This 92-nucleotide sequence from Serratia fonticola belongs to the Rfam family "Aggregatibacter sRNA 22". Rfam 15.1 lists 101 matches to the family in 35 species. On this family, see Oogai et al., DNA Res 2017: "Small RNA repertoires and their intraspecies variation in Aggregatibacter actinomycetemcomitans". The organism belongs to Serratia, within Bacteria. The family's consensus secondary structure was predicted with RNAfold.
RNA sequence: CUGGGGUGACAAAUCUGUCGGGAACAGAUUUGAACGCUGUACACAGCGGCCCCGAAGGGGUGAGGCCCACGGAUGGGCCGAAUAGCUAUGUG
Numbered sequence: 001c002u003g004g005g006g007u008g009a010c011a012a013a014u015c016u017g018u019c020g021g022g023a024a025c026a027g028a029u030u031u032g033a034a035c036g037c038u039g040u041a042c043a044c045a046g047c048g049g050c051c052c053c054g055a056a057g058g059g060g061u062g063a064g065g066c067c068c069a070c071g072g073a074u075g076g077g078c079c080g081a082a083u084a085g086c087u088a089u090g091u092g
Stems, first nucleotide, its partner, number of pairs: 010032008035048005049061005064079006082089002